Small nucleolar RNA SNORA8: a 138-nucleotide RNA from Labrus bergylta. ACA8 is a member of the H/ACA class of snoRNA that guide the sites of modification of uridines to pseudouridines. A search with the family's covariance model found it, with a score of 55 bits.
RNA sequence: AGCACUGUGUGGUAUCUGCAGCCAGCUGUGUCGUCAGCUGGUUUGUUCAAAAGCCAGUGCGAGACAAACUCAACGUCUGGCAUCGUUGGUCUCUGAGCUGAUCGUGUUCGGAGUCCUGGUAUUUUUGUUGAAACACUC
Numbered sequence: 001a002g003c004a005c006u007g008u009g010u011g012g013u014a015u016c017u018g019c020a021g022c023c024a025g026c027u028g029u030g031u032c033g034u035c036a037g038c039u040g041g042u043u044u045g046u047u048c049a050a051a052a053g054c055c056a057g058u059g060c061g062a063g064a065c066a067a068a069c070u071c072a073a074c075g076u077c078u079g080g081c082a083u084c085g086u087u088g089g090u091c092u093c094u095g096a097g098c099u100g101a102u103c104g105u106g107u108u109c110g111g112a113g114u115c116c117u118g119g120u121a122u123u124u125u126u127g128u129u130g131a132a133a134c135a136c137u138c
Base pairs, nucleotide, nucleotide: 002060003059004058005057006056007055015053017051018046019045020044021043023041024039025038026037027036028035064126066124067123068122070119071118072117079108080107081106082105083104